[Rfam]
RNA sequence: CGCUGGAAAGUGAGUGGGGCCACCAGGCUUUAACUCCACCGACGGAGCAAGCGUGUCUCGCAAGGGCGGGUUCGCGCGGAAUCUCUCAGGUCACGGGACAGCG
Numbered sequence: 001c002g003c004u005g006g007a008a009a010g011u012g013a014g015u016g017g018g019g020c021c022a023c024c025a026g027g028c029u030u031u032a033a034c035u036c037c038a039c040c041g042a043c044g045g046a047g048c049a050a051g052c053g054u055g056u057c058u059c060g061c062a063a064g065g066g067c068g069g070g071u072u073c074g075c076g077c078g079g080a081a082u083c084u085c086u087c088a089g090g091u092c093a094c095g096g097g098a099c100a101g102c103g
Stems, first nucleotide, its partner, number of pairs: 001103005012036004038091003041087002045085003052078005

Shown here is a 103-nucleotide sequence from Maricaulis salignorans, a member of the family "Glycine riboswitch aptamer".